[Rfam]
RNA sequence: AGUGGAGGAAUGAGGACUGAGUCUGAAGAGUGAGACUUGGAUGACAGAAACCUCCUAAAAAAGAAGGGAUGGAGAGAGCAGUCCUGCUCCCAGAAAAGCACAGGGCUGACUGUGCCAUCCAACAAGA
Numbered sequence: 001a002g003u004g005g006a007g008g009a010a011u012g013a014g015g016a017c018u019g020a021g022u023c024u025g026a027a028g029a030g031u032g033a034g035a036c037u038u039g040g041a042u043g044a045c046a047g048a049a050a051c052c053u054c055c056u057a058a059a060a061a062a063g064a065a066g067g068g069a070u071g072g073a074g075a076g077a078g079c080a081g082u083c084c085u086g087c088u089c090c091c092a093g094a095a096a097a098g099c100a101c102a103g104g105g106c107u108g109a110c111u112g113u114g115c116c117a118u119c120c121a122a123c124a125a126g127a
Stems, first nucleotide, its partner, number of pairs: 003057001004055005015042001017040001019038006066120003077111002079108007091098001
Shown here is a 127-nucleotide RNA from Oreotrochilus melanogaster, a member of the family "Small Cajal body specific RNA 4". The literature on the family includes a 2002 paper in EMBO J by Darzacq et al., "Cajal body-specific small nuclear RNAs: a novel class of 2'-O-methylation and pseudouridylation guide RNAs". Gene Ontology terms of the family: Cajal body, RNA processing and nucleolus. The family is grouped with related families in Rfam's "SCARNA4 clan". Rfam's curators write: scaRNAs are a specific class of small nuclear RNAs which localise to the Cajal bodies and guide the modification of RNA polymerase II transcribed spliceosomal RNAs U1, U2, U4, U5 and U12. ACA26 belongs to the H/ACA box class of guide RNAs as it has the predicted hairpin-hinge-hairpin-tail structure, conserved H/ACA-box motifs and is found associated with GAR1. The source organism's lineage runs through Eukaryota, Chordata, Tetrapoda, Strisores and Oreotrochilus. The family's consensus secondary structure was predicted with RNAfold. A search with the family's covariance model found it, with a score of 84 bits.